[Rfam]
RNA sequence: GGCUUUUUCCCCCAGACUUUUUGGCGUAGGCUAUACAGAAGGCUUCAAGCUCUGAGGGAAAGGGC
Numbered sequence: 001g002g003c004u005u006u007u008u009c010c011c012c013c014a015g016a017c018u019u020u021u022u023g024g025c026g027u028a029g030g031c032u033a034u035a036c037a038g039a040a041g042g043c044u045u046c047a048a049g050c051u052c053u054g055a056g057g058g059a060a061a062g063g064g065c
Stems, first nucleotide, its partner, number of pairs: 001065001003063002008059004013054004019047001023043001025041001026034002